A member of the RNA family "tRNA" from Thalassoglobus neptunius, 89 nucleotides long. By type it is a transfer RNA. Gene Ontology term of the family: triplet codon-amino acid adaptor activity. It scores 59 bits against the family's covariance model.

Nucleotides: 089
Base pairs, nucleotide, nucleotide: 001088002087003086004085005084006083007082010026011025012024028044029043030042031041032040065081066080067079068078069077
Number, partner (000 for none) and nucleotide at each position: 001088g002087g003086a004085g005084a006083g007082a008000u009000g010026g011025c012024a013000g014000a015000g016000u017000g018000g019000c020000c021000g022000a023000a024012u025011g026010c027000g028044c029043a030042u031041c032040a033000u034000u035000g036000c037000u038000a039000a040032u041031g042030a043029u044028g045000u046000g047000u048000c049000c050000c051000u052000g053000u054000c055000a056000a057000a058000g059000g060000g061000g062000a063000c064000c065081g066080c067079g068078g069077g070000u071000u072000c073000g074000a075000a076000u077069c078068c079067c080066g081065c082007u083006c084005u085004c086003u087002c088001c089000g